[Rfam]
The record is a 354-nucleotide RNA sequence from Aerococcus suis, which matches "Bacterial RNase P class B" in Rfam. Lineage of the source: Bacteria > Bacillati > Bacillota > Aerococcaceae > Aerococcus. Rfam classes the family as a ribozyme. Rfam describes the family as follows. Ribonuclease P (RNase P) is a ubiquitous endoribonuclease, found in archaea, bacteria and eukarya as well as chloroplasts and mitochondria. Its best characterised activity is the generation of mature 5'-ends of tRNAs by cleaving the 5'-leader elements of precursor-tRNAs. Cellular RNase Ps are ribonucleoproteins. The match comes from Rfam's covariance-model search (306 bits).
RNA sequence: AAUUUCAGGUAAUUGCGGAUAGUCCUUACUAUCUGAGGAAAGUCCAUGCUCACACAAACUGCGACGUUUGUAGUGUUCGUGUCUAGUGAAGUCAUAAGCUAGAGCUUAGACGGCAGUUAAAAAUGCUAAGGGUUUAAGCCUAUGCAUGAGUCAACUUGAAAGUGCCACAGAAACGAGUUAACUAUGAAAGUAGUUAAAUGGAACGCGGUAAACCCCACGAGUGAGCAACCCAAACUUUGGUCGGGGCAUUUGACAAUGGAAAAUGAACCAACGUCAAACUGUUAUACAGAGAUAGAUGAUUACCAAACUAAUUAUGAUCCUGCAUAAUUAGGGAACAGAACAUGGCUUAUCGAA
Numbered sequence: 001a002a003u004u005u006c007a008g009g010u011a012a013u014u015g016c017g018g019a020u021a022g023u024c025c026u027u028a029c030u031a032u033c034u035g036a037g038g039a040a041a042g043u044c045c046a047u048g049c050u051c052a053c054a055c056a057a058a059c060u061g062c063g064a065c066g067u068u069u070g071u072a073g074u075g076u077u078c079g080u081g082u083c084u085a086g087u088g089a090a091g092u093c094a095u096a097a098g099c100u101a102g103a104g105c106u107u108a109g110a111c112g113g114c115a116g117u118u119a120a121a122a123a124u125g126c127u128a129a130g131g132g133u134u135u136a137a138g139c140c141u142a143u144g145c146a147u148g149a150g151u152c153a154a155c156u157u158g159a160a161a162g163u164g165c166c167a168c169a170g171a172a173a174c175g176a177g178u179u180a181a182c183u184a185u186g187a188a189a190g191u192a193g194u195u196a197a198a199u200g201g202a203a204c205g206c207g208g209u210a211a212a213c214c215c216c217a218c219g220a221g222u223g224a225g226c227a228a229c230c231c232a233a234a235c236u237u238u239g240g241u242c243g244g245g246g247c248a249u250u251u252g253a254c255a256a257u258g259g260a261a262a263a264u265g266a267a268c269c270a271a272c273g274u275c276a277a278a279c280u281g282u283u284a285u286a287c288a289g290a291g292a293u294a295g296a297u298g299a300u301u302a303c304c305a306a307a308c309u310a311a312u313u314a315u316g317a318u319c320c321u322g323c324a325u326a327a328u329u330a331g332g333g334a335a336c337a338g339a340a341c342a343u344g345g346c347u348u349a350u351c352g353a354a
Base pairs, nucleotide, nucleotide: 004354005353006352007350008304009303010302011301012300013299014298016035017034018033019032020031021030040348041347042346044345045344046343047342048341049225050224051223052222053221054071055070056069057068058067059066077220078219079218080217081216082103083102084101085100086099087098104111105109112215113214115156116155117154118153123147124146125145126144130141131140132139162213163212164209165208166207178197179196180195181194182193183192184191185190229245230244231243249278250277251276252275253274254273279289280288281287282286308331309330310329311328312327313326314325315324316323